[Rfam]
Rfam assigns this 83-nucleotide RNA from Rhodoferax antarcticus to the family "SAH (S-adenosyl-L-homocysteine) riboswitch aptamer". Taxonomically the source falls in Rhodoferax antarcticus (Bacteria, Pseudomonadota, Betaproteobacteria, Comamonadaceae). It scores 52 bits against the family's covariance model.
RNA sequence: CCCUCCAAGGAGCGUUGCAGCGAAACCAAGAUUUCGUCAGGCUUGGAAUGUGUUUGAGACCGCCGCAACGACGCUCACCUGCU
Numbered sequence: 001c002c003c004u005c006c007a008a009g010g011a012g013c014g015u016u017g018c019a020g021c022g023a024a025a026c027c028a029a030g031a032u033u034u035c036g037u038c039a040g041g042c043u044u045g046g047a048a049u050g051u052g053u054u055u056g057a058g059a060c061c062g063c064c065g066c067a068a069c070g071a072c073g074c075u076c077a078c079c080u081g082c083u
Base pairs, nucleotide, nucleotide: 004047005046006045007044008043021036022035023034024033025032